The record is a 72-nucleotide RNA from Enterococcus casseliflavus, which matches "L17 ribosomal protein downstream element" in Rfam. By type it is a cis-regulatory element. The match comes from Rfam's covariance-model search (60 bits). The family's consensus secondary structure is taken from published work.

[Rfam]
RNA sequence: AGAGUGUUAUGAUGUUGGAAGAAACUUUCCGAGUCUAGCUCAGCGCCUACACCUCGAUGUAUUUCGAGGUGU
Numbered sequence: 001a002g003a004g005u006g007u008u009a010u011g012a013u014g015u016u017g018g019a020a021g022a023a024a025c026u027u028u029c030c031g032a033g034u035c036u037a038g039c040u041c042a043g044c045g046c047c048u049a050c051a052c053c054u055c056g057a058u059g060u061a062u063u064u065c066g067a068g069g070u071g072u
Stems, first nucleotide, its partner, number of pairs: 002041004011035003017030004049072009